mir-181 microRNA precursor family: an 81-nucleotide RNA from Cyprinus carpio. A search with the family's covariance model found it, with a score of 70 bits. The base pairs follow the family's consensus structure, which was predicted with PFOLD. For this family Rfam cites "microRNAs: tiny regulators with great potential" (Ambros, Cell, 2001). The family has 157 seed sequences and 3,490 matches in Rfam 15.1.

RNA sequence: UGACUGCAAUAAACAUUCAUUGCUGUCGGUGGGUUUCCAAUGGACACAACUCACUGAUCAAUGAAUGCAAACUGCGGUGCA
Numbered sequence: 001u002g003a004c005u006g007c008a009a010u011a012a013a014c015a016u017u018c019a020u021u022g023c024u025g026u027c028g029g030u031g032g033g034u035u036u037c038c039a040a041u042g043g044a045c046a047c048a049a050c051u052c053a054c055u056g057a058u059c060a061a062u063g064a065a066u067g068c069a070a071a072c073u074g075c076g077g078u079g080c081a
Stems, first nucleotide, its partner, number of pairs: 001081002004077005014067009025058007033050003